[Rfam]
RNA sequence: GCGGACGCCACGCCUAAUCCUUGUCGGGUCACAACGCCCGGCAAGGAGCCGGGGACCCAGCAACACAUCCCGGGGGUGAAUCGGGAGGGUCGGCGGCCCACCAGGAGCCGGCGUUCUCGUAGGGCGACUUCCGGCCCGAACCCGUCAGCUCACCCGGUAGGCGUUGUUGGAAGGAAGG
Numbered sequence: 001g002c003g004g005a006c007g008c009c010a011c012g013c014c015u016a017a018u019c020c021u022u023g024u025c026g027g028g029u030c031a032c033a034a035c036g037c038c039c040g041g042c043a044a045g046g047a048g049c050c051g052g053g054g055a056c057c058c059a060g061c062a063a064c065a066c067a068u069c070c071c072g073g074g075g076g077u078g079a080a081u082c083g084g085g086a087g088g089g090u091c092g093g094c095g096g097c098c099c100a101c102c103a104g105g106a107g108c109c110g111g112c113g114u115u116c117u118c119g120u121a122g123g124g125c126g127a128c129u130u131c132c133g134g135c136c137c138g139a140a141c142c143c144g145u146c147a148g149c150u151c152a153c154c155c156g157g158u159a160g161g162c163g164u165u166g167u168u169g170g171a172a173g174g175a176a177g178g
Stems, first nucleotide, its partner, number of pairs: 011163004018047012048158006058073001074143003082119006122137004
About this RNA
Shown here is a 178-nucleotide RNA from Thermasporomyces composti, a member of the family "c-di-AMP riboswitch aptamer (ydaO/yuaA leader)". Lineage of the source: Bacteria > Bacillati > Actinomycetota > Nocardioidaceae > Thermasporomyces. About the family: This family represents a conserved RNA structure found upstream of the ydaO and yuaA genes in Bacillus subtilis and related genes in other bacteria. The ydaO/yuaA element is thought to act as a genetic 'off' switch for the ydaO and yuaA genes in its native state. It is believed that the element may be triggered during osmotic shock leading to activation of ydaO, a predicted amino acid transporter gene, and members of the yuaA-yubG operon which code for KtrA and KtrB K+ transporters.